[Rfam]
RNA: Makes More Granules Regulator RNA (mmgR)
Organism: Sinorhizobium medicae
RNA sequence: AACUGUUCCCCUCUGGAGGUUCAUACCUUCAAAACUAAUGGGCCGCGGUUUUCCGACGGCCCUUUUUUUCUCUUCCGA
Dot-bracket structure: .......(.((...)).).....................((((((..(.....)..))))))................